[Rfam]
RNA sequence: GUGCCGUGAUGUUAAACUUGUCAACACAUCAUUCUCAAGAAUCGUGUGGAGGCUUUGUGAACUGAGCACC
Numbered sequence: 001g002u003g004c005c006g007u008g009a010u011g012u013u014a015a016a017c018u019u020g021u022c023a024a025c026a027c028a029u030c031a032u033u034c035u036c037a038a039g040a041a042u043c044g045u046g047u048g049g050a051g052g053c054u055u056u057g058u059g060a061a062c063u064g065a066g067c068a069c070c
Stems, first nucleotide, its partner, number of pairs: 001069004
Rfam assigns this 70-nucleotide RNA from Rhagologus leucostigma to the family "Small nucleolar RNA SNORD63". The literature on the family includes a 2002 paper in Mol Cell Biol by Galardi et al., "Purified box C/D snoRNPs are able to reproduce site-specific 2'-O-methylation of target RNA in vitro". Rfam classes the family as a C/D-box small nucleolar RNA. The family has 23 seed sequences and 795 matches in Rfam 15.1. The match comes from Rfam's covariance-model search (48 bits). Pairs were carried over by alignment from the consensus structure, which was predicted with PFOLD. NCBI's taxonomy places the organism under Eukaryota, Craniata, Amniota, Theropoda, Rhagologus. About the family: snoRNA U63 is found in both humans and mice.